[Rfam]
RNA sequence: CCGGAAGGACGACCUUCCCUCGCACAGGCAACCCGGCCGGGACGACCCGC
Numbered sequence: 001c002c003g004g005a006a007g008g009a010c011g012a013c014c015u016u017c018c019c020u021c022g023c024a025c026a027g028g029c030a031a032c033c034c035g036g037c038c039g040g041g042a043c044g045a046c047c048c049g050c
Stems, first nucleotide, its partner, number of pairs: 003018006038049004
Guanidine-II riboswitch aptamer (mini-ykkC): a 50-nucleotide RNA from Teichococcus oryzae. The family's consensus secondary structure is taken from published work. Simpler in structure and has fewer highly conserved nucleotide positions than the ykkC-yxkD leader. Its family is annotated with regulation of gene expression in the Gene Ontology. The family has 72 seed sequences and 1,589 matches in Rfam 15.1.